[Rfam]
RNA sequence: ACUUAGUUGCAACCCCGAGUUUCAUCUCCUAACGCGUGAUGCCAUGGAGGUGGGACCAGUGAGCCGAAGGGCUCCAAGGGUUUUUGCGGAAAACCGCGAAGCCUCCCGGGAUGCGCAAAGUGUCCGAAUUGGAAAGGGGUAAGUCUCGAUCGUUU
Numbered sequence: 001a002c003u004u005a006g007u008u009g010c011a012a013c014c015c016c017g018a019g020u021u022u023c024a025u026c027u028c029c030u031a032a033c034g035c036g037u038g039a040u041g042c043c044a045u046g047g048a049g050g051u052g053g054g055a056c057c058a059g060u061g062a063g064c065c066g067a068a069g070g071g072c073u074c075c076a077a078g079g080g081u082u083u084u085u086g087c088g089g090a091a092a093a094c095c096g097c098g099a100a101g102c103c104u105c106c107c108g109g110g111a112u113g114c115g116c117a118a119a120g121u122g123u124c125c126g127a128a129u130u131g132g133a134a135a136g137g138g139g140u141a142a143g144u145c146u147c148g149a150u151c152g153u154u155u
Stems, first nucleotide, its partner, number of pairs: 003149002006146001012140005019056011034042003061074004078104006085098005105132002
Overview: Shown here is a 155-nucleotide RNA sequence from Cloacibacillus evryensis, a member of the family "Molybdenum/Tungsten riboswitch aptamer (Moco RNA motif)". The organism belongs to Cloacibacillus evryensis, within Bacteria. The base pairs follow the family's consensus structure, which is taken from published work. The match comes from Rfam's covariance-model search (62 bits).